[Rfam]
RNA sequence: UUGCAAACCUUCCAGCGUGCUUGAGUCUGGAGUGACUCCUUGCAGUCCUGCAGUGUUUGCCAGAGUGUCUUGAAAUGGUUUGAGGCUUUGCCCUGUCCCUUCCUCAGAGCAUGGCCAUAGACAUUUCAGACAGUU
Number, nucleotide and partner (000 for none) at each position: 001u000002u000003g060004c059005a058006a057007a056008c055009c000010u000011u000012c000013c000014a000015g000016c000017g000018u044019g043020c042021u000022u000023g038024a037025g036026u035027c034028u000029g000030g000031a000032g000033u000034g027035a026036c025037u024038c023039c000040u000041u000042g020043c019044a018045g000046u000047c000048c000049u000050g000051c000052a000053g000054u000055g008056u007057u006058u005059g004060c003061c000062a000063g000064a000065g000066u000067g000068u000069c000070u000071u128072g127073a126074a125075a124076u000077g000078g000079u000080u000081u000082g000083a000084g000085g000086c114087u113088u000089u111090g110091c109092c000093c107094u106095g105096u000097c000098c000099c000100u000101u000102c000103c000104u000105c095106a094107g093108a000109g091110c090111a089112u000113g087114g086115c000116c000117a000118u000119a000120g000121a000122c000123a000124u075125u074126u073127c072128a071129g000130a000131c000132a000133g000134u000135u000
Record summary
The record is a 135-nucleotide sequence from Chrysochloris asiatica, which matches "Small nucleolar RNA SNORA9" in Rfam. Pairs were carried over by alignment from the consensus structure, which was predicted with PFOLD. Its family is annotated with nucleolus and RNA processing in the Gene Ontology. NCBI's taxonomy places the organism under Eukaryota, Eumetazoa, Deuterostomia, Mammalia, Chrysochloris. Rfam describes the family as follows. ACA9 is a member of the H/ACA class of snoRNA that guide the sites of modification of uridines to pseudouridines.